[Rfam]
RNA: Bacillaceae-1 RNA
Organism: Domibacillus mangrovi
RNA sequence: GUUUAUUCAGUGGGGUAAGAUCGUCACGUCCAGUGACAACGUCUGUAUGAUUCACAUCCUGUGAA
Number, nucleotide and partner (000 for none) at each position: 001g000002u000003u000004u000005a000006u000007u000008c000009a000010g000011u045012g044013g043014g042015g000016u000017a000018a000019g000020a000021u000022c000023g037024u036025c035026a034027c033028g000029u000030c000031c000032a000033g027034u026035g025036a024037c023038a000039a000040c000041g000042u014043c013044u012045g011046u000047a000048u000049g000050a000051u065052u064053c063054a062055c061056a000057u000058c000059c000060u000061g055062u054063g053064a052065a051